Rfam assigns this 57-nucleotide sequence from Orthopestivirus suis to the family "Pestivirus 3' UTR SLI". By type it is a cis-regulatory element. The base pairs follow the family's consensus structure. On this family, see Deng and Brock, Nucleic Acids Res 1993: "5' and 3' untranslated regions of pestivirus genome: primary and secondary structure analyses". The sequence is in the family's curated seed alignment. Lineage of the source: Viruses > Riboviria > Kitrinoviricota > Flasuviricetes > Orthopestivirus suis.
RNA sequence: AGCUGGAGGGAGAAUCCUGACGUCCACAGUUGGACUAAGGUAAUUUCCUAACGGCCC
Numbered sequence: 001a002g003c004u005g006g007a008g009g010g011a012g013a014a015u016c017c018u019g020a021c022g023u024c025c026a027c028a029g030u031u032g033g034a035c036u037a038a039g040g041u042a043a044u045u046u047c048c049u050a051a052c053g054g055c056c057c
Stems, first nucleotide, its partner, number of pairs: 002055004008049006016040003022035005